[Rfam]
Shown here is a 67-nucleotide sequence from Morus notabilis, a member of the family "Small nucleolar RNA U49". Its family is annotated with RNA processing and nucleolus in the Gene Ontology. Pairs were carried over by alignment from the consensus structure, which was predicted with CMfinder.
RNA sequence: UCCCGAUGAGGUAACACUCCCAAAAUUGAUAGGAAGUGCCGUAUGACACUUUAAAACCAGCGGCGGA
Numbered sequence: 001u002c003c004c005g006a007u008g009a010g011g012u013a014a015c016a017c018u019c020c021c022a023a024a025a026u027u028g029a030u031a032g033g034a035a036g037u038g039c040c041g042u043a044u045g046a047c048a049c050u051u052u053a054a055a056a057c058c059a060g061c062g063g064c065g066g067a
Base pairs, nucleotide, nucleotide: 015060033052034051035050036049037048038047